This 69-nucleotide RNA sequence from Anopheles darlingi belongs to the Rfam family "mir-14 microRNA precursor family".

[Rfam]
RNA sequence: UGUGGGAGCGAGAUUAAGGCUUGCUGGUUAUCAAUUUGAACUUUAGUCAGUCUUUUUCUCUCUCCUAUC
Numbered sequence: 001u002g003u004g005g006g007a008g009c010g011a012g013a014u015u016a017a018g019g020c021u022u023g024c025u026g027g028u029u030a031u032c033a034a035u036u037u038g039a040a041c042u043u044u045a046g047u048c049a050g051u052c053u054u055u056u057u058c059u060c061u062c063u064c065c066u067a068u069c
Stems, first nucleotide, its partner, number of pairs: 002068007010060004016054006023047005
On this family, see Li et al., BMC Genomics 2009: "Direct sequencing and expression analysis of a large number of miRNAs in Aedes aegypti and a multi-species survey of novel mosquito miRNAs". Lineage of the source: Eukaryota > Neoptera > Diptera > Culicoidea > argyritarsis series. The match comes from Rfam's covariance-model search (66 bits). Rfam links the family to the GO terms miRNA-mediated post-transcriptional gene silencing and RISC complex.